[Rfam]
RNA sequence: GUCGGCUACGGCGACAUGGCCCCCAAAACCUACAUUGGCAUGUUCGUGGGUGCCCUCUGCGCCCUGGCCGGCGUACUAACCAUCGCACUGCCAGUGCCCGUCAUCGUCAGCAAC
Dot-bracket structure: ((.(...((((.(((..(..(...............((.(........(((.........)))..........).))................)..)..))).))))...).))
This 114-nucleotide RNA from Drosophila melanogaster belongs to the Rfam family "Potassium channel RNA editing signal". The organism belongs to Sophophora, within Eukaryota. Rfam describes the family as follows. This family represents a group of sequences related to the human potassium channel Kv1.1 hairpin element which directs the efficient modification of an adenosine to inosine by an adenosine deaminase acting on RNA (ADAR). The ADAR modification causes an isoleucine/valine recoding event which lies in the ion-conducting pore of the potassium channel. It is one of the family's seed sequences. A reference for the family is Bhalla et al. (2004), "Control of human potassium channel inactivation by editing of a small mRNA hairpin", Nat Struct Mol Biol. It is annotated as a cis-regulatory element. The base pairs follow the family's consensus structure, which is taken from published work.